[Rfam]
RNA sequence: UUACAGUAGGUGCCGAGUUCCCUGAAGCAGGGAAGCGGGGGAACCAUCUUUGGGUGAAUUGACCUCCUAUUUAAAGAGUGGUCAUAGGGGACCUUCUACCGAACCCUUAAGCUAACCUCGCAGGCAUUGGAAGGAGUCCAA
Numbered sequence: 001u002u003a004c005a006g007u008a009g010g011u012g013c014c015g016a017g018u019u020c021c022c023u024g025a026a027g028c029a030g031g032g033a034a035g036c037g038g039g040g041g042a043a044c045c046a047u048c049u050u051u052g053g054g055u056g057a058a059u060u061g062a063c064c065u066c067c068u069a070u071u072u073a074a075a076g077a078g079u080g081g082u083c084a085u086a087g088g089g090g091a092c093c094u095u096c097u098a099c100c101g102a103a104c105c106c107u108u109a110a111g112c113u114a115a116c117c118u119c120g121c122a123g124g125c126a127u128u129g130g131a132a133g134g135a136g137u138c139c140a141a
Base pairs, nucleotide, nucleotide: 011126012125013124014123018034019033020032021031022030023029035121036120037119038118039117040116046050052106053105054104060084061083062082063081087100088099
Rfam assigns this 141-nucleotide sequence from Paenibacillus stellifer to the family "c-di-AMP riboswitch aptamer (ydaO/yuaA leader)". A search with the family's covariance model found it, with a score of 72 bits. Rfam's curators write: This family represents a conserved RNA structure found upstream of the ydaO and yuaA genes in Bacillus subtilis and related genes in other bacteria. The ydaO/yuaA element is thought to act as a genetic 'off' switch for the ydaO and yuaA genes in its native state. It is believed that the element may be triggered during osmotic shock leading to activation of ydaO, a predicted amino acid transporter gene, and members of the yuaA-yubG operon which code for KtrA and KtrB K+ transporters.